[Rfam]
RNA sequence: AUGCGAUGAGCCGAAUUUGCUUUUAAAGCAAUUUUGCGCAGGGGAAAUCAUAAACGCAGGAGCGGAUUUUGAUUAGAUGAUGUGAACCUUCUAAUCACAUUCUUUUAGGAGAAUGCCCCCAAACGACCGUAAGGUCGUUUUUU
Numbered sequence: 001a002u003g004c005g006a007u008g009a010g011c012c013g014a015a016u017u018u019g020c021u022u023u024u025a026a027a028g029c030a031a032u033u034u035u036g037c038g039c040a041g042g043g044g045a046a047a048u049c050a051u052a053a054a055c056g057c058a059g060g061a062g063c064g065g066a067u068u069u070u071g072a073u074u075a076g077a078u079g080a081u082g083u084g085a086a087c088c089u090u091c092u093a094a095u096c097a098c099a100u101u102c103u104u105u106u107a108g109g110a111g112a113a114u115g116c117c118c119c120c121a122a123a124c125g126a127c128c129g130u131a132a133g134g135u136c137g138u139u140u141u142u143u
Stems, first nucleotide, its partner, number of pairs: 012036004017031006041119004045069004055064003070097008098115007123138006
A member of the RNA family "MarS sRNA" from Streptococcus hillyeri, 143 nucleotides long. Gene Ontology terms of the family: positive regulation of translation, ncRNA-mediated and mRNA 5'-UTR binding. On this family, see Pappesch et al., Sci Rep 2017: "The Regulatory Small RNA MarS Supports Virulence of Streptococcus pyogenes". Rfam's curators write: Interacts with the 5'UTR of the mga transcript (the multiple virulence gene regulator gene) and was renamed MarS for mag-activating regulatory sRNA. In MarS deletion strains expression of mga and several Mga-activated genes is reduced. This down-regulation of virulence factors leads to increased susceptibility of the deletion strain to phagocytosis, reduced adherence to human keratinocytes. However, the lack of MarS increased bacterial dissemination and tolerance towards oxidative stress. A search with the family's covariance model found it, with a score of 107 bits.